[Rfam]
RNA sequence: UCCAAAUAGACUGUAAUAUCUUUAAAAACAUAUUACAUUACACACAGGUGGAAACAGUAAAUCCUCUUUUGCAACCCAGAAUUCAUUAUUGAGUAUGAGUUUCAGUACAGUAAGAAGGAAUAUA
Numbered sequence: 001u002c003c004a005a006a007u008a009g010a011c012u013g014u015a016a017u018a019u020c021u022u023u024a025a026a027a028a029c030a031u032a033u034u035a036c037a038u039u040a041c042a043c044a045c046a047g048g049u050g051g052a053a054a055c056a057g058u059a060a061a062u063c064c065u066c067u068u069u070u071g072c073a074a075c076c077c078a079g080a081a082u083u084c085a086u087u088a089u090u091g092a093g094u095a096u097g098a099g100u101u102u103c104a105g106u107a108c109a110g111u112a113a114g115a116a117g118g119a120a121u122a123u124a
Stems, first nucleotide, its partner, number of pairs: 001052004007046001012037008023028001061121002064118002067115005079102008
Description: The record is a 124-nucleotide sequence from Dipodomys ordii, which matches "Small nucleolar RNA SNORA40" in Rfam. It scores 58 bits against the family's covariance model. Rfam classes the family as an H/ACA-box small nucleolar RNA. About the family: The snoRNA ACA 40 belongs to the H/ACA family of snoRNAs and guides the pseudouridylation of 28S rRNA subunit at position U4565. NB This family has a high threshold value to exclude a large number of closely related sequences that do not appear to have conserved H and ACA boxes, and may be pseudogenes. Lineage of the source: Eukaryota > Eumetazoa > Theria > Eutheria > Dipodomys.